[Rfam]
The record is a 134-nucleotide sequence from Xenorhabdus cabanillasii, which matches "EFASI RNA" in Rfam. The family's RNA type in Rfam is small RNA. Lineage of the source: Bacteria > Pseudomonadota > Gammaproteobacteria > Morganellaceae > Xenorhabdus.

RNA sequence: ACGUCACGAUAAUGAGGCGUUCACCCUGAUUGCAUCAGGCACUGAACGGGGAGCAUGUCAUCGCUGUGCUGAGCACGUUGCGAGCUCCUGCAAAAACUCAACACAACCUCGCCCUUGCUACACAUUGUCUGACG
Dot-bracket structure: .((((..(((((((...((((((...................))))))((((........(((((((((...)))))..))))..)))).................................))))))).))))

Pairs were carried over by alignment from the consensus structure, which is taken from published work.